[Rfam]
RNA sequence: GACAUCAACUACCUAAAGAACCAGGAGAAAGAACCCCACCCGACCCCACCCCGGUGGCCACCUGACGGACCCCGGGGGGCUUUCGAGGCUUCGUCACUCACACGGGUGACAUUUCCCAACUCAGCUCGCUUUUGGGCGGGUUGCCCGGCAUAUGCUCACGCCAGACCACAUCCCACACAUACGUCGGCCCCCGACCGGGACUGCAAUCCCAACCGAGGGCCUGGCCACCAAGGAAGUUAGGGCUUCCCC
Numbered sequence: 001g002a003c004a005u006c007a008a009c010u011a012c013c014u015a016a017a018g019a020a021c022c023a024g025g026a027g028a029a030a031g032a033a034c035c036c037c038a039c040c041c042g043a044c045c046c047c048a049c050c051c052c053g054g055u056g057g058c059c060a061c062c063u064g065a066c067g068g069a070c071c072c073c074g075g076g077g078g079g080c081u082u083u084c085g086a087g088g089c090u091u092c093g094u095c096a097c098u099c100a101c102a103c104g105g106g107u108g109a110c111a112u113u114u115c116c117c118a119a120c121u122c123a124g125c126u127c128g129c130u131u132u133u134g135g136g137c138g139g140g141u142u143g144c145c146c147g148g149c150a151u152a153u154g155c156u157c158a159c160g161c162c163a164g165a166c167c168a169c170a171u172c173c174c175a176c177a178c179a180u181a182c183g184u185c186g187g188c189c190c191c192c193g194a195c196c197g198g199g200a201c202u203g204c205a206a207u208c209c210c211a212a213c214c215g216a217g218g219g220c221c222u223g224g225c226c227a228c229c230a231a232g233g234a235a236g237u238u239a240g241g242g243c244u245u246c247c248c249c
Stems, first nucleotide, its partner, number of pairs: 001080001003078001094109006124161002126158001128156001186221005192215002197210004232247005